[Rfam]
RNA: Eukaryotic large subunit ribosomal RNA, nucleotides 1 to 420
Organism: Meloidogyne incognita
RNA sequence: UGACCUGAACUCAGUCGAGAGCACCCGCUGAACUUAAGCAUAUCAGUAAGCGGAGGAAAAGAAACUAAACAGGAUUCCCCCAGUAACGGCGAGUGAACUGGGAAAUGUCCAUCGCUAAAUCAUUUUGCCUCAGGCAUUAUGAAGUGUAGCGUAUAAGGCGUAAUCUUUUAUCUUUUAUUUCAAACAAGUUCCCUUGACAGGGGUUCCACAGAAGGUGAAAGCCCUGUACAUUGAGAUAAUUGAUCGAUAUUUGCGUGCUUUAGAGUCGGGUUGUUUGGGAUCGCAGCCCAAAGUCGGUGGUAAACUUCAUCUAAGACUCAAUAUUGCCACGAGACCGAUAGCAAACAAGUACUGUGAAGGAAAGUUGCAAAGCACUUUGAAGAGAGAGUUAAAGAGGACGUGAAACCGGUGAGGUGGAAA
Numbered sequence: 001u002g003a004c005c006u007g008a009a010c011u012c013a014g015u016c017g018a019g020a021g022c023a024c025c026c027g028c029u030g031a032a033c034u035u036a037a038g039c040a041u042a043u044c045a046g047u048a049a050g051c052g053g054a055g056g057a058a059a060a061g062a063a064a065c066u067a068a069a070c071a072g073g074a075u076u077c078c079c080c081c082a083g084u085a086a087c088g089g090c091g092a093g094u095g096a097a098c099u100g101g102g103a104a105a106u107g108u109c110c111a112u113c114g115c116u117a118a119a120u121c122a123u124u125u126u127g128c129c130u131c132a133g134g135c136a137u138u139a140u141g142a143a144g145u146g147u148a149g150c151g152u153a154u155a156a157g158g159c160g161u162a163a164u165c166u167u168u169u170a171u172c173u174u175u176u177a178u179u180u181c182a183a184a185c186a187a188g189u190u191c192c193c194u195u196g197a198c199a200g201g202g203g204u205u206c207c208a209c210a211g212a213a214g215g216u217g218a219a220a221g222c223c224c225u226g227u228a229c230a231u232u233g234a235g236a237u238a239a240u241u242g243a244u245c246g247a248u249a250u251u252u253g254c255g256u257g258c259u260u261u262a263g264a265g266u267c268g269g270g271u272u273g274u275u276u277g278g279g280a281u282c283g284c285a286g287c288c289c290a291a292a293g294u295c296g297g298u299g300g301u302a303a304a305c306u307u308c309a310u311c312u313a314a315g316a317c318u319c320a321a322u323a324u325u326g327c328c329a330c331g332a333g334a335c336c337g338a339u340a341g342c343a344a345a346c347a348a349g350u351a352c353u354g355u356g357a358a359g360g361a362a363a364g365u366u367g368c369a370a371a372g373c374a375c376u377u378u379g380a381a382g383a384g385a386g387a388g389u390u391a392a393a394g395a396g397g398a399c400g401u402g403a404a405a406c407c408g409g410u411g412a413g414g415u416g417g418a419a420a
Stems, first nucleotide, its partner, number of pairs: 024055001025053005035042002065072002076103004086094002107317003113151005119145001120142004126136002156259002158256004163252001166249001171243002175239009188204001190203004207211001214224002268289007296311004352359002375386004